[Rfam]
RNA sequence: AUGCGUGUAGCGCGGAUUGUAAUUGAUGAAAGCAAAACCGCGCGACUGAUCAAUGAUGUGAAAGAGCGGGUUCCAGUCAAACAUCGCGAGCAUGUAGCCGGGCAGCGUAUUGGCAACAAACAUCUUGCCCGAGGCAAUCAUAUUGGCGCGUUG
Number, nucleotide and partner (000 for none) at each position: 001a000002u034003g033004c000005g000006u032007g000008u030009a000010g000011c000012g000013c025014g024015g023016a000017u000018u000019g000020u000021a000022a000023u015024u014025g013026a000027u000028g000029a000030a008031a000032g006033c003034a002035a000036a000037a057038c000039c055040g054041c000042g051043c000044g000045a000046c000047u000048g000049a000050u000051c042052a000053a000054u040055g039056a000057u037058g000059u000060g000061a000062a000063a000064g000065a152066g151067c150068g149069g000070g082071u081072u080073c000074c000075a000076g000077u000078c000079a000080a072081a071082c070083a000084u000085c000086g147087c146088g000089a144090g143091c000092a141093u140094g139095u000096a000097g000098c134099c133100g000101g130102g129103c127104a126105g125106c000107g123108u122109a000110u119111u118112g117113g000114c000115a000116a000117c112118a111119a110120a000121c000122a108123u107124c000125u105126u104127g103128c000129c102130c101131g000132a000133g099134g098135c000136a000137a000138u000139c094140a093141u092142a000143u090144u089145g000146g087147c086148g000149c068150g067151u066152u065153g000

Ruegeria cis2 sRNA: a 153-nucleotide RNA from Lentibacter algarum. NCBI's taxonomy places the organism under Bacteria, Pseudomonadota, Alphaproteobacteria, Roseobacteraceae, Lentibacter. For this family Rfam cites "Experimental Identification of Small Non-Coding RNAs in the Model Marine Bacterium Ruegeria pomeroyi DSS-3" (Rivers et al., Front Microbiol, 2016).